[Rfam]
RNA sequence: CCAGGGGGCUGGGCAGCCGCGUCGGAGCUUUUGCUUCGCCGAGGAAAGUCCGGGCUCCACGAAACAAGGGUGGCGGGUAACGCCCGCCGGCUUCCCUUCGGGGGAGCAAGGGAUAGUGCCACAGAGAGCAGACCGCCAACCGGCUCGUCCGGAAGGUAAGGGUGAAAGGGUGCGGUAAGAGCGCACCGCAUGUCCGGCAACGGAGAUGGCAAGGUAAACCCCACCCGGAGCAAAACCGAAUAGGGGCGCCGUGCCGGCUUGAUCGGCGGGUCUGUUUCGGACCCAGGACGCCCGGGUUGGUUGCUGGAGCGGCGCAGCAAUGCGUCGCCGAGAUGAAUGGCUGCCCUUGCGGAUACGGUCCGGUUAAUCGGAUACCGUCCGCGAGACAAAACCCGGCUUACAGGCCCCCUGGCAUA
Number, nucleotide and partner (000 for none) at each position: 001c412002c411003a410004g409005g408006g407007g406008g405009c404010u403011g401012g345013g344014c343015a342016g341017c340018c339019g000020c041021g040022u000023c038024g037025g036026a035027g034028c033029u000030u000031u000032u000033g028034c027035u026036u025037c024038g023039c000040c021041g020042a000043g000044g000045a000046a399047a398048g397049u000050c396051c395052g394053g393054g392055c230056u229057c228058c227059a000060c000061g000062a000063a000064a277065c000066a275067a000068g226069g225070g224071u223072g222073g087074c086075g085076g084077g083078u000079a000080a000081c000082g000083c077084c076085c075086g074087c073088c110089g000090g107091c106092u105093u104094c103095c102096c101097u000098u000099c000100g000101g096102g095103g094104g093105a092106g091107c090108a000109a000110g088111g221112g220113a000114u000115a000116g219117u218118g215119c214120c213121a000122c000123a000124g000125a000126g000127a000128g000129c000130a000131g000132a000133c161134c160135g157136c156137c155138a000139a000140c152141c151142g150143g149144c000145u000146c000147g000148u000149c143150c142151g141152g140153a000154a000155g137156g136157u135158a000159a000160g134161g133162g000163u000164g000165a000166a000167a000168g000169g187170g186171u185172g184173c183174g182175g000176u000177a000178a000179g000180a000181g000182c174183g173184c172185a171186c170187c169188g210189c208190a207191u206192g000193u204194c203195c202196g201197g000198c000199a000200a000201c196202g195203g194204a193205g000206a191207u190208g189209g000210c188211a000212a000213g120214g119215u118216a000217a000218a117219c116220c112221c111222c072223a071224c070225c069226c068227g058228g057229a056230g055231c000232a000233a000234a302235a301236c300237c299238g000239a000240a000241u000242a000243g000244g293245g292246g291247c290248g289249c000250c000251g000252u000253g000254c000255c000256g000257g000258c000259u000260u000261g000262a000263u000264c000265g000266g000267c000268g000269g283270g282271u281272c280273u279274g000275u066276u000277u064278c000279g273280g272281a271282c270283c269284c000285a000286g000287g000288a000289c248290g247291c246292c245293c244294g000295g000296g000297u000298u000299g237300g236301u235302u234303g000304c000305u000306g000307g000308a000309g328310c327311g326312g325313c324314g323315c322316a321317g000318c000319a000320a000321u316322g315323c314324g313325u312326c311327g310328c309329c000330g000331a000332g000333a000334u000335g000336a000337a000338u000339g018340g017341c016342u015343g014344c013345c012346c000347u000348u000349g000350c000351g000352g000353a000354u000355a000356c000357g000358g000359u000360c000361c000362g000363g000364u000365u000366a000367a000368u000369c000370g000371g000372a000373u000374a000375c000376c000377g000378u000379c000380c000381g000382c000383g000384a000385g000386a000387c000388a000389a000390a000391a000392c054393c053394c052395g051396g050397c048398u047399u046400a000401c011402a000403g010404g009405c008406c007407c006408c005409c004410u003411g002412g001413c000414a000415u000416a000